Description:
The family of this 114-nucleotide RNA from Cuspidothrix issatschenkoi is "c-di-AMP riboswitch aptamer (ydaO/yuaA leader)".

RNA sequence: AAUUCAUGAAAGCUGAAUUUAAAACGGAGGAACCACGUAUUUGGGGCUAAUCUUUCAGAGAGACACCUUCCAGUCUUAGCCCGUCAGCUAACUCCGUCGGCAAUGGAAGGAACU
Numbered sequence: 001a002a003u004u005c006a007u008g009a010a011a012g013c014u015g016a017a018u019u020u021a022a023a024a025c026g027g028a029g030g031a032a033c034c035a036c037g038u039a040u041u042u043g044g045g046g047c048u049a050a051u052c053u054u055u056c057a058g059a060g061a062g063a064c065a066c067c068u069u070c071c072a073g074u075c076u077u078a079g080c081c082c083g084u085c086a087g088c089u090a091a092c093u094c095c096g097u098c099g100g101c102a103a104u105g106g107a108a109g110g111a112a113c114u
Stems, first nucleotide, its partner, number of pairs: 012101003018023001024097006034043002044082003052058002061076004
Dot-bracket structure: ...........(((...(....)((((((....((......))(((.....((...))..((((........))))...))).........)))))).))).............
Taxonomically the source falls in Cuspidothrix issatschenkoi (Bacteria, Bacillati, Nostocales, Cuspidothrix). The base pairs follow the family's consensus structure.